A member of the RNA family "small nucleolar RNA snoR127" from Morus notabilis, 173 nucleotides long. Rfam 15.1 lists 273 matches to the family in 170 species. It is annotated as a C/D-box small nucleolar RNA.

RNA sequence: CUGGAAUGAUGCAAUUUAGCCAAAUCAGACAUUGACGUGCUCCAAAAGGCACAAUAGUUCCUCAAAGCUCAGAAUAUCUUGUAUGAAAUUGAUCAAGCUUUGGAUAAUAGAUGCCUCUUGUAGAAGCGCAUCCGUCUGAUGAUAAACUAGAGAUUGGUCGUUUGCUGACCAGA
Dot-bracket structure: ((((....................................................................................................................................................................)))).
Numbered sequence: 001c002u003g004g005a006a007u008g009a010u011g012c013a014a015u016u017u018a019g020c021c022a023a024a025u026c027a028g029a030c031a032u033u034g035a036c037g038u039g040c041u042c043c044a045a046a047a048g049g050c051a052c053a054a055u056a057g058u059u060c061c062u063c064a065a066a067g068c069u070c071a072g073a074a075u076a077u078c079u080u081g082u083a084u085g086a087a088a089u090u091g092a093u094c095a096a097g098c099u100u101u102g103g104a105u106a107a108u109a110g111a112u113g114c115c116u117c118u119u120g121u122a123g124a125a126g127c128g129c130a131u132c133c134g135u136c137u138g139a140u141g142a143u144a145a146a147c148u149a150g151a152g153a154u155u156g157g158u159c160g161u162u163u164g165c166u167g168a169c170c171a172g173a
Stems, first nucleotide, its partner, number of pairs: 001172004
The family's consensus secondary structure was predicted with RNAalifold.
The match comes from Rfam's covariance-model search (72 bits).
The source organism's lineage runs through Eukaryota, Viridiplantae, Streptophyta, Gunneridae and Morus.
On this family, see Chen and Wu, Nucleic Acids Res 2009: "Mining small RNA sequencing data: a new approach to identify small nucleolar RNAs in Arabidopsis".